[Rfam]
RNA sequence: GUCGAGAGCAUCGCGCCCGAGGCCCACGCUUAUCGGUUCGAGGGAAACCUCGAUCAACUGUUCGGGCACAGGGCGCGAGAUCCGGCGUGCGGCCCCUGCUGAAUUACGGUGGUGCUGACACCGAGGCGUUAUCGGGCGCGCACGCCGGGCUUUCGGCUUCUA
Numbered sequence: 001g002u003c004g005a006g007a008g009c010a011u012c013g014c015g016c017c018c019g020a021g022g023c024c025c026a027c028g029c030u031u032a033u034c035g036g037u038u039c040g041a042g043g044g045a046a047a048c049c050u051c052g053a054u055c056a057a058c059u060g061u062u063c064g065g066g067c068a069c070a071g072g073g074c075g076c077g078a079g080a081u082c083c084g085g086c087g088u089g090c091g092g093c094c095c096c097u098g099c100u101g102a103a104u105u106a107c108g109g110u111g112g113u114g115c116u117g118a119c120a121c122c123g124a125g126g127c128g129u130u131a132u133c134g135g136g137c138g139c140g141c142a143c144g145c146c147g148g149g150c151u152u153u154c155g156g157c158u159u160c161u162a
Stems, first nucleotide, its partner, number of pairs: 001157008009079001011078004015069001022063001025060002036054002040051004082148010092137004108122004
Source information:
Rfam assigns this 162-nucleotide RNA from Azomonas macrocytogenes to the family "Xanthomonadaceae sRNA sX15". On this family, see Schmidtke et al., Nucleic Acids Res 2011: "Genome-wide transcriptome analysis of the plant pathogen Xanthomonas identifies sRNAs with putative virulence functions". Lineage of the source: Bacteria > Gammaproteobacteria > Pseudomonadales > Pseudomonadaceae > Azomonas. Rfam 15.1 lists 32 matches to the family in 24 species. The base pairs follow the family's consensus structure, which was predicted with CMfinder.